[Rfam]
RNA sequence: GCCGAGCUUGGUAGCACAAGCUUGUAACCUGAGCAGGGGCAUUAAUGUGUUGGAACGUUGGAUUGGCUCAGAUGGUAGGACCGGUAGGGCUAUUCACUGGCUCGCCCAUUCCAAGCGAAGAGCUGGGUCAUGCGGACUUGGCGGAGGCUGAGACCGCUUGGCUCCUAAAGUGGAGGGCACUGCGUGAGGCUGGUUUGACAGAGCAACGAGAACUUCCCGCUCCUGGCAGUGGAAGGAUAACGAGCUGGUGCUCCACUAGUCCACUAUUACCAGAUGGGCAUUCCUAAUUGAACCAACACUUUU
Numbered sequence: 001g002c003c004g005a006g007c008u009u010g011g012u013a014g015c016a017c018a019a020g021c022u023u024g025u026a027a028c029c030u031g032a033g034c035a036g037g038g039g040c041a042u043u044a045a046u047g048u049g050u051u052g053g054a055a056c057g058u059u060g061g062a063u064u065g066g067c068u069c070a071g072a073u074g075g076u077a078g079g080a081c082c083g084g085u086a087g088g089g090c091u092a093u094u095c096a097c098u099g100g101c102u103c104g105c106c107c108a109u110u111c112c113a114a115g116c117g118a119a120g121a122g123c124u125g126g127g128u129c130a131u132g133c134g135g136a137c138u139u140g141g142c143g144g145a146g147g148c149u150g151a152g153a154c155c156g157c158u159u160g161g162c163u164c165c166u167a168a169a170g171u172g173g174a175g176g177g178c179a180c181u182g183c184g185u186g187a188g189g190c191u192g193g194u195u196u197g198a199c200a201g202a203g204c205a206a207c208g209a210g211a212a213c214u215u216c217c218c219g220c221u222c223c224u225g226g227c228a229g230u231g232g233a234a235g236g237a238u239a240a241c242g243a244g245c246u247g248g249u250g251c252u253c254c255a256c257u258a259g260u261c262c263a264c265u266a267u268u269a270c271c272a273g274a275u276g277g278g279c280a281u282u283c284c285u286a287a288u289u290g291a292a293c294c295a296a297c298a299c300u301u302u303u
Stems, first nucleotide, its partner, number of pairs: 001040003004023007028037003044302002047299007056290002058287003061283002064280002068277003073272005078262004083257003087253003091250002097248008106236002109234005115227002118224001120222004125164006132157004137152006165170001172217005181210001183208003190201003
RNA: Plant signal recognition particle RNA